Overview:
A member of the RNA family "Erse small RNA" from Escherichia coli, 252 nucleotides long. Pairs were carried over by alignment from the consensus structure, which was predicted with RNAfold. NCBI's taxonomy places the organism under Bacteria, Pseudomonadota, Gammaproteobacteria, Enterobacterales, Escherichia coli K-12.

RNA sequence: CCUGCGGAACUGCUGGCCCCUUAUACCGGUGAUAUCGCCGCUGAAGGAAUCAGCAAAGCCAUGCGCGGAGGCGCAAAGUUCCUGCAUCACGGCAUUAAGCGCCAGCAACGUUAUGUGGCGGAAGCCAUUACUGAAGAGUGGCGUAUGGCACCCGGUCCGCUUGAAGUGGCCUGGUUUGCGGAAGAGACGGCUGCCGUCGAGCGUGCUGUUGAUGCCCUGACCAAACGGCUGGAAAAACUGGAGGCUAAAUGA
Numbered sequence: 001c002c003u004g005c006g007g008a009a010c011u012g013c014u015g016g017c018c019c020c021u022u023a024u025a026c027c028g029g030u031g032a033u034a035u036c037g038c039c040g041c042u043g044a045a046g047g048a049a050u051c052a053g054c055a056a057a058g059c060c061a062u063g064c065g066c067g068g069a070g071g072c073g074c075a076a077a078g079u080u081c082c083u084g085c086a087u088c089a090c091g092g093c094a095u096u097a098a099g100c101g102c103c104a105g106c107a108a109c110g111u112u113a114u115g116u117g118g119c120g121g122a123a124g125c126c127a128u129u130a131c132u133g134a135a136g137a138g139u140g141g142c143g144u145a146u147g148g149c150a151c152c153c154g155g156u157c158c159g160c161u162u163g164a165a166g167u168g169g170c171c172u173g174g175u176u177u178g179c180g181g182a183a184g185a186g187a188c189g190g191c192u193g194c195c196g197u198c199g200a201g202c203g204u205g206c207u208g209u210u211g212a213u214g215c216c217c218u219g220a221c222c223a224a225a226c227g228g229c230u231g232g233a234a235a236a237a238c239u240g241g242a243g244g245c246u247a248a249a250u251g252a
Base pairs, nucleotide, nucleotide: 001244002243003242005240006082007081008080009079010078011077012054013053014052015051016050019047020046021045022044027040028039029038030037031036062075063074064073065072066071084215085214086213087212088211089210090208091207092206093205094204095203099144100143101142102141103140104139115128116127117126118125119124148179149178150177152174153173154172155171157169158168159167160166161165186198187197188196189195190194216232217231219229221228222227